[Rfam]
RNA sequence: AUUGGAUCGAUGAUUACAUUAGUUUACUAAACUGCGUUAUCUAUCCGCAAAUCUCCUUACAAGGAGUUUGAAGAAACCAUAAAAACUGAGAUCCAGC
Numbered sequence: 001a002u003u004g005g006a007u008c009g010a011u012g013a014u015u016a017c018a019u020u021a022g023u024u025u026a027c028u029a030a031a032c033u034g035c036g037u038u039a040u041c042u043a044u045c046c047g048c049a050a051a052u053c054u055c056c057u058u059a060c061a062a063g064g065a066g067u068u069u070g071a072a073g074a075a076a077c078c079a080u081a082a083a084a085a086c087u088g089a090g091a092u093c094c095a096g097c
Stems, first nucleotide, its partner, number of pairs: 002096006
RNA: Small nucleolar RNA snoR27
Organism: Raphanus sativus